[Rfam]
A member of the RNA family "mir-965 microRNA precursor family" from Darwinula stevensoni, 74 nucleotides long. The match comes from Rfam's covariance-model search (51 bits).

RNA sequence: CACGCACCGGGAAAAGCUGUUGCGCUCAUGCUAAUGGUUAGAUUGCAUAAGCGUAUGGCUUUUCCCCGUGUGAG
Numbered sequence: 001c002a003c004g005c006a007c008c009g010g011g012a013a014a015a016g017c018u019g020u021u022g023c024g025c026u027c028a029u030g031c032u033a034a035u036g037g038u039u040a041g042a043u044u045g046c047a048u049a050a051g052c053g054u055a056u057g058g059c060u061u062u063u064c065c066c067c068g069u070g071u072g073a074g
Stems, first nucleotide, its partner, number of pairs: 003072005009066003013062002017058004025051002028048003